[Rfam]
RNA sequence: UGACCACUUUCCUCGGGGAGUCAAGGCCAUACGGACAGCCGGGUCAAAUGCCGA
Number, nucleotide and partner (000 for none) at each position: 001u046002g045003a044004c043005c042006a021007c020008u019009u018010u017011c016012c000013u000014c000015g000016g011017g010018g009019a008020g007021u006022c000023a000024a000025g000026g000027c000028c000029a000030u000031a000032c000033g000034g000035a000036c000037a000038g000039c000040c000041g000042g005043g004044u003045c002046a001047a000048a000049u000050g000051c000052c000053g000054a000
RNA: Streptococcus sRNA SpF59 (ldcC RNA)